[Rfam]
RNA: mir-880 microRNA precursor family
RNA sequence: UGCACUGCAAUACUCAGAUUGGUAUGAGUCACUUCCUAAAACAUGUUACUCCAUUCAUUCUGAGUAGAGCAAGGCACA
Numbered sequence: 001u002g003c004a005c006u007g008c009a010a011u012a013c014u015c016a017g018a019u020u021g022g023u024a025u026g027a028g029u030c031a032c033u034u035c036c037u038a039a040a041a042c043a044u045g046u047u048a049c050u051c052c053a054u055u056c057a058u059u060c061u062g063a064g065u066a067g068a069g070c071a072a073g074g075c076a077c078a
Stems, first nucleotide, its partner, number of pairs: 001076003006071003011066008020057003026051004031046002